Small nucleolar RNA Z107/R87: a 105-nucleotide RNA from Vitis rotundifolia. Lineage of the source: Eukaryota > Streptophytina > Tracheophyta > rosids > Vitis. It scores 87 bits against the family's covariance model. Gene Ontology terms of the family: nucleolus and RNA processing. The family's RNA type in Rfam is C/D-box small nucleolar RNA.

RNA sequence: GAUCGCUAUGAUGACUCCAUAAAAUUCAAGCUCAACAGACCGGAUUGCACGGUUUCUCUUCUCUGAGAACUUUGCGUGUCGACCACCCCGCUGAACUGAGCGAUC
Numbered sequence: 001g002a003u004c005g006c007u008a009u010g011a012u013g014a015c016u017c018c019a020u021a022a023a024a025u026u027c028a029a030g031c032u033c034a035a036c037a038g039a040c041c042g043g044a045u046u047g048c049a050c051g052g053u054u055u056c057u058c059u060u061c062u063c064u065g066a067g068a069a070c071u072u073u074g075c076g077u078g079u080c081g082a083c084c085a086c087c088c089c090g091c092u093g094a095a096c097u098g099a100g101c102g103a104u105c
Base pairs, nucleotide, nucleotide: 001105002104003103004102005101006100
The base pairs follow the family's consensus structure, which was predicted with RNAfold.